[Rfam]
RNA sequence: GUAAAGCAUCAAGAGUACUUGAAUGUACACCAACCGAGCCUUAUAUAUUGUGGCCACGGUGGUAAAAUGAUGCGGAUUGUCUUAUAAUCAAAAAUAAACAAUAUG
Numbered sequence: 001g002u003a004a005a006g007c008a009u010c011a012a013g014a015g016u017a018c019u020u021g022a023a024u025g026u027a028c029a030c031c032a033a034c035c036g037a038g039c040c041u042u043a044u045a046u047a048u049u050g051u052g053g054c055c056a057c058g059g060u061g062g063u064a065a066a067a068u069g070a071u072g073c074g075g076a077u078u079g080u081c082u083u084a085u086a087a088u089c090a091a092a093a094a095u096a097a098a099c100a101a102u103a104u105g
Stems, first nucleotide, its partner, number of pairs: 006073005015028004029063003034059003038054002075089006
Source information: SAM-I/IV (S-adenosyl methionine) riboswitch aptamer: a 105-nucleotide RNA from Prevotella sp. CAG:487. For this family Rfam cites "The aptamer core of SAM-IV riboswitches mimics the ligand-binding site of SAM-I riboswitches" (Weinberg et al., RNA, 2008). Its family is annotated with regulation of gene expression and S-adenosylmethionine metabolic process in the Gene Ontology. The source organism's lineage runs through Bacteria, Bacteroidia, Bacteroidales, Prevotellaceae and Prevotella.